[Rfam]
RNA sequence: CACGCAUCGCCUGAUCCUUGCUGCAACCUUUUAUAUUGUCAGAAUUAGGUGAGCAAAGUUUCAGGUGUGUGUGUGA
Numbered sequence: 001c002a003c004g005c006a007u008c009g010c011c012u013g014a015u016c017c018u019u020g021c022u023g024c025a026a027c028c029u030u031u032u033a034u035a036u037u038g039u040c041a042g043a044a045u046u047a048g049g050u051g052a053g054c055a056a057a058g059u060u061u062c063a064g065g066u067g068u069g070u071g072u073g074u075g076a
Stems, first nucleotide, its partner, number of pairs: 002074006008067007016058001018056002021053002024051002027049003
Dot-bracket structure: .(((((((((((((.(.((.((.((.(((.................))))))).)).)..))))))).))))))..
RNA: mir-87 microRNA precursor family
Organism: Apolygus lucorum